RNA sequence: UUCCGAGCCACCAUAUAGGUUGCAAGAGUGGAACGGGAAGUCCUAUAGA
Numbered sequence: 001u002u003c004c005g006a007g008c009c010a011c012c013a014u015a016u017a018g019g020u021u022g023c024a025a026g027a028g029u030g031g032a033a034c035g036g037g038a039a040g041u042c043c044u045a046u047a048g049a
Stems, first nucleotide, its partner, number of pairs: 001037003008031002012026001015046005
Dot-bracket structure: [[[....[[..[..(((((......]...]]...]]]....)))))...

The record is a 49-nucleotide sequence from Polerovirus SCYLV, which matches "Exoribonuclease-resistant RNA (xrRNA) plant-infecting virus (class 3)" in Rfam. Rfam describes the family as follows. Exoribonuclease-resistant RNA (xrRNA) plant-infecting virus (class 3) is a ncRNA that was reported in Plant viruses. On this family, see Steckelberg et al., RNA 2020: "The crystal structure of a Polerovirus exoribonuclease-resistant RNA shows how diverse sequences are integrated into a conserved fold". Rfam links the family to the GO term viral RNA genome replication. The family's consensus secondary structure is taken from published work.